[Rfam]
RNA sequence: ACAUUAUCGGAAGCAGGGCCUUUCAUAAUGC
Numbered sequence: 001a002c003a004u005u006a007u008c009g010g011a012a013g014c015a016g017g018g019c020c021u022u023u024c025a026u027a028a029u030g031c
Stems, first nucleotide, its partner, number of pairs: 002030006009024005014018001
Dot-bracket structure: .((((((.((((((...).))))))))))).
RNA: Iron response element II